[Rfam]
RNA sequence: GGGGGCUGCCUUUCAGGCAUCCUCUCCUAAGACUUAGUGGGCUGGUCGUUCUCGAUCGGCCCUUUUUUUGUCGUUCC
Numbered sequence: 001g002g003g004g005g006c007u008g009c010c011u012u013u014c015a016g017g018c019a020u021c022c023u024c025u026c027c028u029a030a031g032a033c034u035u036a037g038u039g040g041g042c043u044g045g046u047c048g049u050u051c052u053c054g055a056u057c058g059g060c061c062c063u064u065u066u067u068u069u070g071u072c073g074u075u076c077c
Stems, first nucleotide, its partner, number of pairs: 008018004039062009
RNA: Makes More Granules Regulator RNA (mmgR)
Organism: Sphingobium herbicidovorans